[Rfam]
RNA sequence: AAAAUAAAGGAGCAAUAAACUCUUUCUUGUUUUAUCAAGAGGGUUUAUUGCUCCUU
Numbered sequence: 001a002a003a004a005u006a007a008a009g010g011a012g013c014a015a016u017a018a019a020c021u022c023u024u025u026c027u028u029g030u031u032u033u034a035u036c037a038a039g040a041g042g043g044u045u046u047a048u049u050g051c052u053c054c055u056u
Base pairs, nucleotide, nucleotide: 007056008055009054010053011052012051013050014049015048016047017046022043024041025040026039027038028037029036
Plastid-psbA-4 3UTR RNA: a 56-nucleotide RNA sequence from Caryopteris mongholica. The family's RNA type in Rfam is cis-regulatory element. The family's consensus secondary structure was predicted with LocARNA. A reference for the family is Richter et al. (2023), "Retrograde signaling in plants: A critical review focusing on the GUN pathway and beyond", Plant Commun. Plastid psbA-4 is a non-coding RNA (ncRNA) present in plastids. It was identified in inverted repeat sequences in the 3 prime untranslate region (3UTR) of photosystem II quinone-binding protein (psbA).